[Rfam]
RNA sequence: CCACUGCCAGCGUGGCCCGAAAGGGAUAACUGGACGCGGAUAAGCCGGUAGUGCCGCGAUGCAGGAAAACACCGGCAGCC
Numbered sequence: 001c002c003a004c005u006g007c008c009a010g011c012g013u014g015g016c017c018c019g020a021a022a023g024g025g026a027u028a029a030c031u032g033g034a035c036g037c038g039g040a041u042a043a044g045c046c047g048g049u050a051g052u053g054c055c056g057c058g059a060u061g062c063a064g065g066a067a068a069a070c071a072c073c074g075g076c077a078g079c080c
Stems, first nucleotide, its partner, number of pairs: 001015004007033004016025003035058005044076005
RNA: Proteo-phage-1 RNA
Organism: Pseudomonas putida